[Rfam]
RNA sequence: GGCCUGUGAUGCAUAAAUCUGGGUAUAUUUGCUACUCGUGACUGUCUCCUUGGAAGCUUGAUGAUGGUUUUAUCCACCAAGAUCUUUGAGGCC
Numbered sequence: 001g002g003c004c005u006g007u008g009a010u011g012c013a014u015a016a017a018u019c020u021g022g023g024u025a026u027a028u029u030u031g032c033u034a035c036u037c038g039u040g041a042c043u044g045u046c047u048c049c050u051u052g053g054a055a056g057c058u059u060g061a062u063g064a065u066g067g068u069u070u071u072a073u074c075c076a077c078c079a080a081g082a083u084c085u086u087u088g089a090g091g092c093c
Stems, first nucleotide, its partner, number of pairs: 001093004